[Rfam]
RNA: mir-172 microRNA precursor family
Organism: Populus trichocarpa
RNA sequence: UUGUUUGCGGGUGGAGCAUCAUCAAGAUUCACAUGCAAAUGCACGGCCGGUGAUGUUAAGAGUUAAAUCUUUCUUUGUUUCUGUUCAUCUGCCAAAGUUCUUUGGAAGUGAGAAUCUUGAUGAUGCUGCAUCGGCAAUAAA
Numbered sequence: 001u002u003g004u005u006u007g008c009g010g011g012u013g014g015a016g017c018a019u020c021a022u023c024a025a026g027a028u029u030c031a032c033a034u035g036c037a038a039a040u041g042c043a044c045g046g047c048c049g050g051u052g053a054u055g056u057u058a059a060g061a062g063u064u065a066a067a068u069c070u071u072u073c074u075u076u077g078u079u080u081c082u083g084u085u086c087a088u089c090u091g092c093c094a095a096a097g098u099u100c101u102u103u104g105g106a107a108g109u110g111a112g113a114a115u116c117u118u119g120a121u122g123a124u125g126c127u128g129c130a131u132c133g134g135c136a137a138u139a140a141a
Stems, first nucleotide, its partner, number of pairs: 010132004015127016032110002